[Rfam]
Shown here is a 480-nucleotide sequence from Spirosoma profusum, a member of the family "Bacterial RNase P class A".

RNA sequence: AACUCAGGCUGGCUUAUCGCGUCCGAGUAAUCGGAUGAGGAAAGUCCGGGCAGCGCAGAGCAUCCUACUUCCUAACGGGAAGGCGGGCGGCUGGGAACGGCCGUUCGACAGACAGGGCAACAGAAAAUAUACCGCCAAAAUUUAACGAGUGAAAGGGCGAGAGAGAGAAAGAGCGAAAGGCUACCGUAGCCAACUCACUCUUUCACUCUUUCACUCUUUCGCCUUUAAACUUGGUAAGGGCGAACCGGUGGGGUAAGAGCCUACCGCUCGUUGGGCGACCAACGGGGCACGGUAACCCUUAGGGGCUGAAAGACCAAAUAAGCGUUGGAGCGUGGCUGCUCGCUGCCAGAAGCUUGCAAGAGCGGACCCAACGCGGGUAGGUCGAACGAGGUGUCGGGUGACCGGCAUCCCAGAUAAAUGAUAAGCCAUUCCACUGUAGUAGUGGGAGGACAGAACCCGGCUUAUAGGCCUGAGUUGACU
Numbered sequence: 001a002a003c004u005c006a007g008g009c010u011g012g013c014u015u016a017u018c019g020c021g022u023c024c025g026a027g028u029a030a031u032c033g034g035a036u037g038a039g040g041a042a043a044g045u046c047c048g049g050g051c052a053g054c055g056c057a058g059a060g061c062a063u064c065c066u067a068c069u070u071c072c073u074a075a076c077g078g079g080a081a082g083g084c085g086g087g088c089g090g091c092u093g094g095g096a097a098c099g100g101c102c103g104u105u106c107g108a109c110a111g112a113c114a115g116g117g118c119a120a121c122a123g124a125a126a127a128u129a130u131a132c133c134g135c136c137a138a139a140a141u142u143u144a145a146c147g148a149g150u151g152a153a154a155g156g157g158c159g160a161g162a163g164a165g166a167g168a169a170a171g172a173g174c175g176a177a178a179g180g181c182u183a184c185c186g187u188a189g190c191c192a193a194c195u196c197a198c199u200c201u202u203u204c205a206c207u208c209u210u211u212c213a214c215u216c217u218u219u220c221g222c223c224u225u226u227a228a229a230c231u232u233g234g235u236a237a238g239g240g241c242g243a244a245c246c247g248g249u250g251g252g253g254u255a256a257g258a259g260c261c262u263a264c265c266g267c268u269c270g271u272u273g274g275g276c277g278a279c280c281a282a283c284g285g286g287g288c289a290c291g292g293u294a295a296c297c298c299u300u301a302g303g304g305g306c307u308g309a310a311a312g313a314c315c316a317a318a319u320a321a322g323c324g325u326u327g328g329a330g331c332g333u334g335g336c337u338g339c340u341c342g343c344u345g346c347c348a349g350a351a352g353c354u355u356g357c358a359a360g361a362g363c364g365g366a367c368c369c370a371a372c373g374c375g376g377g378u379a380g381g382u383c384g385a386a387c388g389a390g391g392u393g394u395c396g397g398g399u400g401a402c403c404g405g406c407a408u409c410c411c412a413g414a415u416a417a418a419u420g421a422u423a424a425g426c427c428a429u430u431c432c433a434c435u436g437u438a439g440u441a442g443u444g445g446g447a448g449g450a451c452a453g454a455a456c457c458c459g460g461c462u463u464a465u466a467g468g469c470c471u472g473a474g475u476u477g478a479c480u
Stems, first nucleotide, its partner, number of pairs: 001476010011465001012426007020037007042463003046460005051308004063304005068082005083109001084107010110299002115297002117293002132239002134235005141228002247265006266288001267286008312383004322374006390409008
Overview:
Its family is annotated with dimeric ribonuclease P complex, ribonuclease P activity and tRNA processing in the Gene Ontology. The source organism's lineage runs through Bacteria, Bacteroidota, Cytophagia, Cytophagaceae and Spirosoma. Rfam describes the family as follows. Ribonuclease P (RNase P) is a ubiquitous endoribonuclease, found in archaea, bacteria and eukarya as well as chloroplasts and mitochondria.